The record is an 86-nucleotide RNA from Spinacia oleracea, which matches "Small nucleolar RNA R11/Z151" in Rfam. The family's consensus secondary structure was predicted with PFOLD.

[Rfam]
RNA sequence: GAGUUGAUGAUAAUACUUUACUUUAUUUUAGCGGAUUUCAGUGAGAUCAAUGAUCUAUGAUCUGAUUGUUACACACACUGAAGCUC
Numbered sequence: 001g002a003g004u005u006g007a008u009g010a011u012a013a014u015a016c017u018u019u020a021c022u023u024u025a026u027u028u029u030a031g032c033g034g035a036u037u038u039c040a041g042u043g044a045g046a047u048c049a050a051u052g053a054u055c056u057a058u059g060a061u062c063u064g065a066u067u068g069u070u071a072c073a074c075a076c077a078c079u080g081a082a083g084c085u086c
Stems, first nucleotide, its partner, number of pairs: 001086005
Background: A search with the family's covariance model found it, with a score of 65 bits. The literature on the family includes a 2001 paper in J Mol Biol by Barneche et al., "Identification of 66 box C/D snoRNAs in Arabidopsis thaliana: extensive gene duplications generated multiple isoforms predicting new ribosomal RNA 2'-O-methylation sites". Taxonomically the source falls in Spinacia (Eukaryota, Tracheophyta, Euphyllophyta, Gunneridae). The family's RNA type in Rfam is C/D-box small nucleolar RNA.